[Rfam]
RNA sequence: UACCCCCUUUUCACUUUGCCAAUUAGACUUAUGUCUUUAUCAUUCAAGUGGGACAAAGGAAAUAUCCUUUUAAAAUUCAGGCAAACUGGUGUUUGUCUUGUAUCCUGUAAAAGGAAACAAAU
Numbered sequence: 001u002a003c004c005c006c007c008u009u010u011u012c013a014c015u016u017u018g019c020c021a022a023u024u025a026g027a028c029u030u031a032u033g034u035c036u037u038u039a040u041c042a043u044u045c046a047a048g049u050g051g052g053a054c055a056a057a058g059g060a061a062a063u064a065u066c067c068u069u070u071u072a073a074a075a076u077u078c079a080g081g082c083a084a085a086c087u088g089g090u091g092u093u094u095g096u097c098u099u100g101u102a103u104c105c106u107g108u109a110a111a112a113g114g115a116a117a118c119a120a121a122u
Stems, first nucleotide, its partner, number of pairs: 032055005040047001065115006078100001079098008

Small nucleolar RNA SNORA27: a 122-nucleotide sequence from Microcebus murinus. Pairs were carried over by alignment from the consensus structure. The family has 24 seed sequences and 819 matches in Rfam 15.1. By type it is an H/ACA-box small nucleolar RNA. Gene Ontology terms of the family: RNA processing and nucleolus. ACA27 is a member of the H/ACA class of snoRNA that guide the sites of modification of uridines to pseudouridines.